[Rfam]
RNA sequence: CGAUGAGGUAGAGGUGCAACUAACAUUAGUAAUGUGCAAGAGGAUGACAACGUAGAUUGUACAUGAAAGGGUUAUUUGCCGAAGCAUUCAUUUUAGUCAGAAAAAUGAAUGUUGGUGUGUAUCUGAAGAAGGUAUAUACUCUCGCGUUAAGAGCGGGGUGCUACUGAUCGA
Numbered sequence: 001c002g003a004u005g006a007g008g009u010a011g012a013g014g015u016g017c018a019a020c021u022a023a024c025a026u027u028a029g030u031a032a033u034g035u036g037c038a039a040g041a042g043g044a045u046g047a048c049a050a051c052g053u054a055g056a057u058u059g060u061a062c063a064u065g066a067a068a069g070g071g072u073u074a075u076u077u078g079c080c081g082a083a084g085c086a087u088u089c090a091u092u093u094u095a096g097u098c099a100g101a102a103a104a105a106u107g108a109a110u111g112u113u114g115g116u117g118u119g120u121a122u123c124u125g126a127a128g129a130a131g132g133u134a135u136a137u138a139c140u141c142u143c144g145c146g147u148u149a150a151g152a153g154c155g156g157g158g159u160g161c162u163a164c165u166g167a168u169c170g171a
Base pairs, nucleotide, nucleotide: 007165008164009163010162011161016079017078018077019076021074022073023072024071032064033063034062035061036060037059038058039057083113084112085111086110087109088108089107090106091105092104093103094102114140115139116138117137118136119135120134121133122132123131124130142156143155144154145153147151